[Rfam]
RNA sequence: GGGAAGUGAUGAGUGGUAAAUACUCGCAAUUAAAAAAUGCGAGAUGGGUGUCUGCCUAGCCUGUUACGACAACUGGGCACUCCCCUUCUUAACCUAUCUGAUCCU
Numbered sequence: 001g002g003g004a005a006g007u008g009a010u011g012a013g014u015g016g017u018a019a020a021u022a023c024u025c026g027c028a029a030u031u032a033a034a035a036a037a038u039g040c041g042a043g044a045u046g047g048g049u050g051u052c053u054g055c056c057u058a059g060c061c062u063g064u065u066a067c068g069a070c071a072a073c074u075g076g077g078c079a080c081u082c083c084c085c086u087u088c089u090u091a092a093c094c095u096a097u098c099u100g101a102u103c104c105u
Base pairs, nucleotide, nucleotide: 001105002104003103004102015094016093017092023043024042025041026040027039046082047081048080049079050078051077052076061075063073064072
RNA: Small nucleolar RNA Z279/snoR105/snoR108